[Rfam]
RNA sequence: AAAAAGGGCUUCUGUCGUGAUUGACACAGGGAGGGUGAGGGAGUCUCAUCCUCUUUGCGGAAUCGCCAUCAAGAGAUUUCGGAAGCAUAAUUUUUAAAAUCUGAGGCUGCUAGUAACCAUUUGUUCUGGCGCCUCC
Dot-bracket structure: .......((((((((((....)))))((((((((((((.......))))))))))))(((((((..........)))))))))))).................((((.(((((.(((.....))))))))))))..